The family of this 89-nucleotide RNA sequence from Vitis vinifera is "Small nucleolar RNA snoR8a".
The family has 7 seed sequences and 956 matches in Rfam 15.1.
Pairs were carried over by alignment from the consensus structure, which was predicted with WAR.

RNA sequence: UUGGUUGCGAUGAUUAUAAGAAAUUCCUCGUACUGAAUGCUAUAGCCAUGGCAUGACAGACGCCUUAACACCCAUAGAAUAUGAGCACC
Numbered sequence: 001u002u003g004g005u006u007g008c009g010a011u012g013a014u015u016a017u018a019a020g021a022a023a024u025u026c027c028u029c030g031u032a033c034u035g036a037a038u039g040c041u042a043u044a045g046c047c048a049u050g051g052c053a054u055g056a057c058a059g060a061c062g063c064c065u066u067a068a069c070a071c072c073c074a075u076a077g078a079a080u081a082u083g084a085g086c087a088c089c
Stems, first nucleotide, its partner, number of pairs: 003089002006087002
Background:
Lineage of the source: Eukaryota > Streptophytina > Magnoliopsida > rosids > Vitis. On this family, see Brown et al., RNA 2001: "Multiple snoRNA gene clusters from Arabidopsis".